[Rfam]
RNA: Group II catalytic intron D1-D4-3
Organism: Caldisalinibacter kiritimatiensis
RNA sequence: CGUGAGGUGGAAUCUGAAGGAAGUCGGCGGCAAAGCAUUGAACCGAGGUACACGAAUCACAUUUGAGGCUUAGAUAAGUGGAUAAGGUUGCUAAACAAACUAAAGUCCAAUAACUACCCGAAACUUACUAAGUAAAUGUGGCGGUUACAUGAUGCGAAAGUAAGCGCU
Numbered sequence: 001c002g003u004g005a006g007g008u009g010g011a012a013u014c015u016g017a018a019g020g021a022a023g024u025c026g027g028c029g030g031c032a033a034a035g036c037a038u039u040g041a042a043c044c045g046a047g048g049u050a051c052a053c054g055a056a057u058c059a060c061a062u063u064u065g066a067g068g069c070u071u072a073g074a075u076a077a078g079u080g081g082a083u084a085a086g087g088u089u090g091c092u093a094a095a096c097a098a099a100c101u102a103a104a105g106u107c108c109a110a111u112a113a114c115u116a117c118c119c120g121a122a123a124c125u126u127a128c129u130a131a132g133u134a135a136a137u138g139u140g141g142c143g144g145u146u147a148c149a150u151g152a153u154g155c156g157a158a159a160g161u162a163a164g165c166g167c168u
Stems, first nucleotide, its partner, number of pairs: 001006001023168001025166002030161002035155006041146005057141006068133003072129001075127005080108004086101004